The family of this 84-nucleotide RNA sequence from Polypterus senegalus is "mir-130 microRNA precursor family". Rfam 15.1 lists 2,580 matches to the family in 658 species. The organism belongs to Polypterus, within Eukaryota. On this family, see Houbaviy et al., Dev Cell 2003: "Embryonic stem cell-specific MicroRNAs".
RNA sequence: GUCUGUCCAGUGCCCCUUUUAGGUUGUACUACUGGUAAAACUGUAAUAAAAGCAGUGCAAUGUUAAAAGGGCAUUGGCCAGGGA
Numbered sequence: 001g002u003c004u005g006u007c008c009a010g011u012g013c014c015c016c017u018u019u020u021a022g023g024u025u026g027u028a029c030u031a032c033u034g035g036u037a038a039a040a041c042u043g044u045a046a047u048a049a050a051a052g053c054a055g056u057g058c059a060a061u062g063u064u065a066a067a068a069g070g071g072c073a074u075u076g077g078c079c080a081g082g083g084a
Base pairs, nucleotide, nucleotide: 002083003082005079007077008076009075010074012072013071014070015069017067018066019065023061024060025059026058027057028056029055030054